[Rfam]
RNA sequence: AGGAAUACCGCACUGAUACGGGUAUGGUCCGACGCCUCUUGAAGGAUAAUAUAGGAUCUCCAUACCCUACUCCGACUCAAAACGUCCACGGCGUACAGAAAGGUAACAUAUUUCUCCAAUAACCUGAGCUUGGGUACGCGGGGAAACUCAACCCCUUGGGAGGAUGGGUCAUAUGGCUAAAUUGAGCGGG
Numbered sequence: 001a002g003g004a005a006u007a008c009c010g011c012a013c014u015g016a017u018a019c020g021g022g023u024a025u026g027g028u029c030c031g032a033c034g035c036c037u038c039u040u041g042a043a044g045g046a047u048a049a050u051a052u053a054g055g056a057u058c059u060c061c062a063u064a065c066c067c068u069a070c071u072c073c074g075a076c077u078c079a080a081a082a083c084g085u086c087c088a089c090g091g092c093g094u095a096c097a098g099a100a101a102g103g104u105a106a107c108a109u110a111u112u113u114c115u116c117c118a119a120u121a122a123c124c125u126g127a128g129c130u131u132g133g134g135u136a137c138g139c140g141g142g143g144a145a146a147c148u149c150a151a152c153c154c155c156u157u158g159g160g161a162g163g164a165u166g167g168g169u170c171a172u173a174u175g176g177c178u179a180a181a182u183u184g185a186g187c188g189g190g
Stems, first nucleotide, its partner, number of pairs: 020067008029055002071190004076186005082094003086103002107175005114168001116167002122165001124163002130151006153160002
Shown here is a 190-nucleotide RNA sequence from Anopheles stephensi, a member of the family "drz-agam-2-2 ribozyme". For this family Rfam cites "Widespread occurrence of self-cleaving ribozymes" (Webb et al., Science, 2009). Rfam 15.1 lists 486 matches to the family in 10 species. It scores 158 bits against the family's covariance model. Taxonomically the source falls in Neocellia (Eukaryota, Ecdysozoa, Diptera, Nematocera).